[Rfam]
Source information:
Shown here is a 76-nucleotide sequence from Ameiurus melas, a member of the family "mir-7563 microRNA precursor family". The organism belongs to Ameiurus, within Eukaryota. The match comes from Rfam's covariance-model search (84 bits). Rfam links the family to the GO terms miRNA-mediated post-transcriptional gene silencing and RISC complex.
RNA sequence: ACCGCGUACUUACCUGCUAUAUAGUAGGUGAAGUACAUGUAUCUCGGCUACUAUAUAGUAGGUAAAUAUGCGGUUU
Numbered sequence: 001a002c003c004g005c006g007u008a009c010u011u012a013c014c015u016g017c018u019a020u021a022u023a024g025u026a027g028g029u030g031a032a033g034u035a036c037a038u039g040u041a042u043c044u045c046g047g048c049u050a051c052u053a054u055a056u057a058g059u060a061g062g063u064a065a066a067u068a069u070g071c072g073g074u075u076u
Base pairs, nucleotide, nucleotide: 001074002073003072004071005070006069007068008067010065011064012063013062014061015060017058018057019056020055021054022053023052024051025050026049027048029046030045031044033042034041035040